[Rfam]
RNA sequence: AAAAAGCCGUCUGAAGAGACACCAUGCCAGCCAUGGUGCACCGAAGGAGCAACCCGCUGGCGCGUGCCGGUGGCGAAUCUCUCAGGUACCAAGGACAGGGGGAGCGGC
Numbered sequence: 001a002a003a004a005a006g007c008c009g010u011c012u013g014a015a016g017a018g019a020c021a022c023c024a025u026g027c028c029a030g031c032c033a034u035g036g037u038g039c040a041c042c043g044a045a046g047g048a049g050c051a052a053c054c055c056g057c058u059g060g061c062g063c064g065u066g067c068c069g070g071u072g073g074c075g076a077a078u079c080u081c082u083c084a085g086g087u088a089c090c091a092a093g094g095a096c097a098g099g100g101g102g103a104g105c106g107g108c
Stems, first nucleotide, its partner, number of pairs: 007102002010099004020038006040087003043083002047081003054073008

Glycine riboswitch aptamer: a 108-nucleotide RNA from Rhodoferax koreensis. It scores 51 bits against the family's covariance model. The organism belongs to Rhodoferax, within Bacteria.